[Rfam]
RNA sequence: UCACUAGUGAAAAACCAGCCAGAGACAGUAGGAGCGCAAGCUUAAUUUCCUACCGAGGAUGAGUUCAAUUAUAAUGAUUGAUUCUGCCUCUUUGUCAAAGCAAAGGGGUUUUUUACUGAAUAG
Numbered sequence: 001u002c003a004c005u006a007g008u009g010a011a012a013a014a015c016c017a018g019c020c021a022g023a024g025a026c027a028g029u030a031g032g033a034g035c036g037c038a039a040g041c042u043u044a045a046u047u048u049c050c051u052a053c054c055g056a057g058g059a060u061g062a063g064u065u066c067a068a069u070u071a072u073a074a075u076g077a078u079u080g081a082u083u084c085u086g087c088c089u090c091u092u093u094g095u096c097a098a099a100g101c102a103a104a105g106g107g108g109u110u111u112u113u114u115a116c117u118g119a120a121u122a123g
Base pairs, nucleotide, nucleotide: 028053029052030051031050032049033048034041035040087108088107089106090105091104092103093102094101095100
Notes: Ribosomal protein L10 leader: a 123-nucleotide sequence from Fusibacter sp. A1. Taxonomically the source falls in Fusibacter (Bacteria, Bacillota, Clostridia, Eubacteriales). The family's RNA type in Rfam is cis-regulatory leader.